Record summary
Small nucleolar RNA Z13/snr52: a 110-nucleotide RNA from Dichomitus squalens. By type it is a C/D-box small nucleolar RNA.

[Rfam]
RNA sequence: CGUGUUGAAAGGAUGAAGCUAUUACGGAUGUAAAAGAGCUAUGGCUCAUCCAUCCGAGAGCGCAUCAACCUCAUGUGGAUCCUUCCGUUGCCUUCCUUCUGAUUCAGUGU
Numbered sequence: 001c002g003u004g005u006u007g008a009a010a011g012g013a014u015g016a017a018g019c020u021a022u023u024a025c026g027g028a029u030g031u032a033a034a035a036g037a038g039c040u041a042u043g044g045c046u047c048a049u050c051c052a053u054c055c056g057a058g059a060g061c062g063c064a065u066c067a068a069c070c071u072c073a074u075g076u077g078g079a080u081c082c083u084u085c086c087g088u089u090g091c092c093u094u095c096c097u098u099c100u101g102a103u104u105c106a107g108u109g110u
Stems, first nucleotide, its partner, number of pairs: 003109003025087004

The organism belongs to Dichomitus squalens, within Eukaryota.